Nucleotides: 082
Base pairs, nucleotide, nucleotide: 001081002080003079004078005077006076010026011025012024028044029043030042031041032040058074059073060072061071062070
Number, partner (000 for none) and nucleotide at each position: 001081g002080g003079g004078c005077g006076g007000a008000u009000g010026g011025c012024g013000g014000a015000a016000u017000u018000g019000g020000u021000a022000g023000a024012c025011g026010c027000a028044c029043c030042a031041c032040a033000c034000u035000c036000a037000a038000a039000a040032u041031g042030u043029g044028g045000c046000g047000c048000c049000g050000a051000g052000a053000g054000g055000c056000g057000u058074a059073a060072g061071a062070g063000u064000u065000c066000g067000a068000g069000u070062c071061u072060c073059u074058u075000c076006c077005c078004g079003c080002c081001c082000a
tRNA: an 82-nucleotide RNA sequence from Drouetiella hepatica. The organism belongs to Drouetiella hepatica, within Bacteria. By type it is a transfer RNA. Rfam describes the family as follows. Transfer RNA (tRNA) molecules are approximately 80 nucleotides in length. Their secondary structure includes four short double-helical elements and three loops (D, anti-codon, and T loops). Further hydrogen bonds mediate the characteristic L-shaped molecular structure. tRNAs have two regions of fundamental functional importance: the anti-codon, which is responsible for specific mRNA codon recognition, and the 3' end, to which the tRNAs corresponding amino acid is attached (by aminoacyl-tRNA synthetases). tRNAs cope with the degeneracy of the genetic code in two manners: having more than one tRNA (with a specific anti-codon) for a particular amino acid; and 'wobble' base-pairing, i.e. permitting non-standard base-pairing at the 3rd anti-codon position. A search with the family's covariance model found it, with a score of 51 bits. Pairs were carried over by alignment from the consensus structure, which is taken from published work.